Shown here is a 115-nucleotide RNA from Anaerostipes sp. 992a, a member of the family "FMN riboswitch aptamer (RFN element)".

[Rfam]
RNA sequence: AUAUUUCUUCAGGGCAGGGUGUAAUUCCCUACCGGCGGUAAAGCCCGCGAGCCGUAAGGCAUGAUUCGGUGUAAUUCCGAAGCCGACAGUAUAGUCUGGAUGAGAGAAGAGAGUA
Numbered sequence: 001a002u003a004u005u006u007c008u009u010c011a012g013g014g015c016a017g018g019g020u021g022u023a024a025u026u027c028c029c030u031a032c033c034g035g036c037g038g039u040a041a042a043g044c045c046c047g048c049g050a051g052c053c054g055u056a057a058g059g060c061a062u063g064a065u066u067c068g069g070u071g072u073a074a075u076u077c078c079g080a081a082g083c084c085g086a087c088a089g090u091a092u093a094g095u096c097u098g099g100a101u102g103a104g105a106g107a108a109g110a111g112a113g114u115a
Base pairs, nucleotide, nucleotide: 004112005111006110007109008108009107010106017029018028019027031095032094033085034084035048036047037046038045043083044082053059065081066080067079068078069077087098088097089096